[Rfam]
RNA sequence: UCGCUGUAUGGGUGUUAUACCGCUGUGACUCAGAACUUUACCCCCAAGGAGAGCGACCGCCAGAGUAAAGACAGUGC
Numbered sequence: 001u002c003g004c005u006g007u008a009u010g011g012g013u014g015u016u017a018u019a020c021c022g023c024u025g026u027g028a029c030u031c032a033g034a035a036c037u038u039u040a041c042c043c044c045c046a047a048g049g050a051g052a053g054c055g056a057c058c059g060c061c062a063g064a065g066u067a068a069a070g071a072c073a074g075u076g077c
Base pairs, nucleotide, nucleotide: 002076003075004074005073006072009032010031011030012029037069038068039067040066041065043063